[Rfam]
RNA sequence: CGGCGUCCGUCAGGAGAGCGCUGUCGCCCCAAGGCCUCAGCCACCGAAGGCGCAGGCUUGACUGCCGAACGCUCAGGUACAAGGGACUGACGGACACGC
Numbered sequence: 001c002g003g004c005g006u007c008c009g010u011c012a013g014g015a016g017a018g019c020g021c022u023g024u025c026g027c028c029c030c031a032a033g034g035c036c037u038c039a040g041c042c043a044c045c046g047a048a049g050g051c052g053c054a055g056g057c058u059u060g061a062c063u064g065c066c067g068a069a070c071g072c073u074c075a076g077g078u079a080c081a082a083g084g085g086a087c088u089g090a091c092g093g094a095c096a097c098g099c
Base pairs, nucleotide, nucleotide: 006094007093008092009091010090011089012088013087020041021040022039023038043078044077045076046074047073050072051071052070056065057064
This 99-nucleotide sequence from Ramlibacter rhizophilus belongs to the Rfam family "Glycine riboswitch aptamer". NCBI's taxonomy places the organism under Bacteria, Pseudomonadota, Betaproteobacteria, Burkholderiales, Ramlibacter. Pairs were carried over by alignment from the consensus structure.